[Rfam]
RNA: mir-214 microRNA precursor family
Organism: Varanus komodoensis
Nucleotides: 099
Stems, first nucleotide, its partner, number of pairs: 015085003020080009032068001034066006041059003
Number, partner (000 for none) and nucleotide at each position: 001000u002000g003000g004000c005000u006000g007000g008000u009000u010000g011000u012000c013000a014000u015085g016084u017083g018000g019000c020080u021079g022078c023077c024076u025075g026074u027073c028072u029000g030000u031000g032068c033000c034066u035065g036064c037063u038062g039061u040000a041059c042058a043057g044000g045000c046000g047000a048000g049000a050000g051000c052000a053000u054000g055000u056000u057043c058042u059041g060000c061039a062038c063037a064036g065035c066034a067000a068032g069000u070000g071000u072028a073027g074026a075025c076024a077023g078022g079021c080020a081000g082000a083017c084016a085015c086000g087000u088000g089000a090000c091000a092000a093000c094000g095000c096000u097000g098000c099000g